Rfam assigns this 307-nucleotide RNA from Rattus norvegicus to the family "Mason-Pfizer monkey virus packaging signal".
[Rfam]
RNA sequence: GGACGCCCAAAGUGGGGCCUGGAUAGAGGAGGCUCCAUGAGGAAGAAGGUUCAGGUGGCCAGCAUUGUAUAUAGAAAUUCCUUCAAAUGCUGUGGGAGCCUGCUGUGGCUGAAACGAAAGUGAGUGAUAGAGUCUGAUUAUGGGACAAACAUUAAGCCAAAAUGAGGUCUAUGUGAAACAAUUAAAAGAGGCAUUGCCAAUAUGAGGUCCAUGUGAGACAAUUAAAAGAGACAUUAAAGUACAAGGAGUAAAGGUAAAAACCAAUGAUUUGUUUAAUUUUUUUAUUUUGUUAAGGAUCUUUGCCCUU
Numbered sequence: 001g002g003a004c005g006c007c008c009a010a011a012g013u014g015g016g017g018c019c020u021g022g023a024u025a026g027a028g029g030a031g032g033c034u035c036c037a038u039g040a041g042g043a044a045g046a047a048g049g050u051u052c053a054g055g056u057g058g059c060c061a062g063c064a065u066u067g068u069a070u071a072u073a074g075a076a077a078u079u080c081c082u083u084c085a086a087a088u089g090c091u092g093u094g095g096g097a098g099c100c101u102g103c104u105g106u107g108g109c110u111g112a113a114a115c116g117a118a119a120g121u122g123a124g125u126g127a128u129a130g131a132g133u134c135u136g137a138u139u140a141u142g143g144g145a146c147a148a149a150c151a152u153u154a155a156g157c158c159a160a161a162a163u164g165a166g167g168u169c170u171a172u173g174u175g176a177a178a179c180a181a182u183u184a185a186a187a188g189a190g191g192c193a194u195u196g197c198c199a200a201u202a203u204g205a206g207g208u209c210c211a212u213g214u215g216a217g218a219c220a221a222u223u224a225a226a227a228g229a230g231a232c233a234u235u236a237a238a239g240u241a242c243a244a245g246g247a248g249u250a251a252a253g254g255u256a257a258a259a260a261c262c263a264a265u266g267a268u269u270u271g272u273u274u275a276a277u278u279u280u281u282u283u284a285u286u287u288u289g290u291u292a293a294g295g296a297u298c299u300u301u302g303c304c305c306u307u
Stems, first nucleotide, its partner, number of pairs: 007029002013025002035049002038046001079122001081120001082118002088113001091107005128148001130146001133144004153236003156232001158230001243282007252270004257265001292307004297302001
Rfam describes the family as follows. This family represents a group of sequences that are related to the Mason-Pfizer monkey virus (MPMV) packaging signal. The packaging signal is located in the 5' UTR and is required for specific RNA encapsidation.
The family has 9 seed sequences and 2,921 matches in Rfam 15.1.